The record is an 86-nucleotide sequence from Alkaliphilus serpentinus, which matches "c-di-GMP-I riboswitch aptamer" in Rfam.
Rfam links the family to the GO term cyclic-di-GMP binding.
NCBI's taxonomy places the organism under Bacteria, Bacillota, Clostridia, Peptostreptococcales, Alkaliphilus.
The match comes from Rfam's covariance-model search (83 bits).
RNA sequence: AAUCAAAAAAGGCAAACUUAUCGAAAGGUAAGGACGCAAAGCCAAGGGCCUAAGAUAAUGAUUUAUUAAGGUAGCCGGUUGCUAAG
Numbered sequence: 001a002a003u004c005a006a007a008a009a010a011g012g013c014a015a016a017c018u019u020a021u022c023g024a025a026a027g028g029u030a031a032g033g034a035c036g037c038a039a040a041g042c043c044a045a046g047g048g049c050c051u052a053a054g055a056u057a058a059u060g061a062u063u064u065a066u067u068a069a070g071g072u073a074g075c076c077g078g079u080u081g082c083u084a085a086g
Stems, first nucleotide, its partner, number of pairs: 012037002017032006040080004046076002048072003055066004